[Rfam]
The record is a 63-nucleotide sequence from Monodelphis domestica, which matches "mir-7371 microRNA precursor family" in Rfam. The family's consensus secondary structure was predicted with RNAalifold. Rfam's curators put it in the seed alignment.

RNA sequence: CCCUUGUACCAGAUGCUCUAUUGUAUUGAGUGCUGUCAAAUAGAGCAUGCUUGUACAAGGUAA
Numbered sequence: 001c002c003c004u005u006g007u008a009c010c011a012g013a014u015g016c017u018c019u020a021u022u023g024u025a026u027u028g029a030g031u032g033c034u035g036u037c038a039a040a041u042a043g044a045g046c047a048u049g050c051u052u053g054u055a056c057a058a059g060g061u062a063a
Base pairs, nucleotide, nucleotide: 003059004058005057006056007055008054009053011051012050013048014047015046016045017044018043019042021040022039024038
Dot-bracket structure: ..(((((((.(((((((((.((.(.............))).))))))).)).)))))))....
Lineage of the source: Eukaryota > Metazoa > Gnathostomata > Teleostomi > Monodelphis. Gene Ontology terms of the family: RISC complex and miRNA-mediated post-transcriptional gene silencing.